[Rfam]
RNA sequence: GUCGGCGUCGUCUCCGUAGAGCCGUCGAGCGUGCCGGUCGUCUCCGAGCUGCCCGGGCGCACCAGCGCGUUUCUCGUCGCCCAGGUGCGGGCGCGGGUCGACGGCAUCGUAUUGCGCCGCGAGUUCACGGAAGGCUCGGACGUCAAGGCCGGCCAGCGUCUUUACAAGAUCGA
Numbered sequence: 001g002u003c004g005g006c007g008u009c010g011u012c013u014c015c016g017u018a019g020a021g022c023c024g025u026c027g028a029g030c031g032u033g034c035c036g037g038u039c040g041u042c043u044c045c046g047a048g049c050u051g052c053c054c055g056g057g058c059g060c061a062c063c064a065g066c067g068c069g070u071u072u073c074u075c076g077u078c079g080c081c082c083a084g085g086u087g088c089g090g091g092c093g094c095g096g097g098u099c100g101a102c103g104g105c106a107u108c109g110u111a112u113u114g115c116g117c118c119g120c121g122a123g124u125u126c127a128c129g130g131a132a133g134g135c136u137c138g139g140a141c142g143u144c145a146a147g148g149c150c151g152g153c154c155a156g157c158g159u160c161u162u163u164a165c166a167a168g169a170u171c172g173a
Stems, first nucleotide, its partner, number of pairs: 004053004008047003014040001016038001021034002023031002055150002058147001059143002063139001065137001067135002072133001074131002078093005094121002097118001099116002102114003106110001157172002159169003
RNA: Burkholderia RNA 14
Organism: Caballeronia glathei